[Rfam]
RNA: Ribosomal protein L10 leader
Organism: Lentibacillus halodurans
RNA sequence: AAAUAUGAAUACGUUAUACCGUAGACAGCAGGUGCAAGAAAUUGCUUAAUCUCCUGCCGAGGUGUUUGAAUACGAAUGUUUAAUCCCAAAUAGGAUUGCCGUUUGUCACAAAACCUCCAUGUCUACAUGGAGGUUUUUUAACGGGUUA
Numbered sequence: 001a002a003a004u005a006u007g008a009a010u011a012c013g014u015u016a017u018a019c020c021g022u023a024g025a026c027a028g029c030a031g032g033u034g035c036a037a038g039a040a041a042u043u044g045c046u047u048a049a050u051c052u053c054c055u056g057c058c059g060a061g062g063u064g065u066u067u068g069a070a071u072a073c074g075a076a077u078g079u080u081u082a083a084u085c086c087c088a089a090a091u092a093g094g095a096u097u098g099c100c101g102u103u104u105g106u107c108a109c110a111a112a113a114c115c116u117c118c119a120u121g122u123c124u125a126c127a128u129g130g131a132g133g134u135u136u137u138u139u140a141a142c143g144g145g146u147u148a
Base pairs, nucleotide, nucleotide: 028057029056030055031054032053034045035044036043114133115132116131117130118129119128120127121126